[Rfam]
RNA: RAGATH-18 RNA
Organism: Bacillus mycoides
RNA sequence: CCUGUGGAGUGUUAUAUCAAACGAAAAUAGCCUUAGGCGAAAUCGGACACGAAGAAGCAGGAA
Numbered sequence: 001c002c003u004g005u006g007g008a009g010u011g012u013u014a015u016a017u018c019a020a021a022c023g024a025a026a027a028u029a030g031c032c033u034u035a036g037g038c039g040a041a042a043u044c045g046g047a048c049a050c051g052a053a054g055a056a057g058c059a060g061g062a063a
Base pairs, nucleotide, nucleotide: 001061002060003059004058005057009050010049011048012047013046022045023044024043030038031037032036